The record is a 119-nucleotide RNA from Pipistrellus kuhlii, which matches "mir-9261 microRNA precursor family" in Rfam. Gene Ontology terms of the family: miRNA-mediated post-transcriptional gene silencing and RISC complex. The family has 3 seed sequences and 196 matches in Rfam 15.1. A search with the family's covariance model found it, with a score of 87 bits.

RNA sequence: AACAAUUUGUCCCGCGUCCCGCGGCGUUUUAAGAAAGUCCCGAUUUUUUGGAAAGAAUCUUUUUUAAAAAAGAAUCGGGACUUUUUUAAAACGCCGCGGGACGCGGGACAGUUUGUUAA
Numbered sequence: 001a002a003c004a005a006u007u008u009g010u011c012c013c014g015c016g017u018c019c020c021g022c023g024g025c026g027u028u029u030u031a032a033g034a035a036a037g038u039c040c041c042g043a044u045u046u047u048u049u050g051g052a053a054a055g056a057a058u059c060u061u062u063u064u065u066a067a068a069a070a071a072g073a074a075u076c077g078g079g080a081c082u083u084u085u086u087u088a089a090a091a092c093g094c095c096g097c098g099g100g101a102c103g104c105g106g107g108a109c110a111g112u113u114u115g116u117u118a119a
Stems, first nucleotide, its partner, number of pairs: 001117005007111043